RNA: SAM (S-adenosyl methionine) riboswitch aptamer
Organism: Rhodococcus coprophilus
RNA sequence: GGUCAUGAGUACCAGCAUCGAGCCCCGGCUUGCUGGUCGGCAACCCUCCUCCGCGGUGGGGUGCUCCGGGUGACGACCUGGCUGUGUUUCCGAAACCGGACACGGCAAGCGCGGACU
Numbered sequence: 001g002g003u004c005a006u007g008a009g010u011a012c013c014a015g016c017a018u019c020g021a022g023c024c025c026c027g028g029c030u031u032g033c034u035g036g037u038c039g040g041c042a043a044c045c046c047u048c049c050u051c052c053g054c055g056g057u058g059g060g061g062u063g064c065u066c067c068g069g070g071u072g073a074c075g076a077c078c079u080g081g082c083u084g085u086g087u088u089u090c091c092g093a094a095a096c097c098g099g100a101c102a103c104g105g106c107a108a109g110c111g112c113g114g115a116c117u
Stems, first nucleotide, its partner, number of pairs: 001078004009038001011037006021030002039065003044061003048056002081106007090099003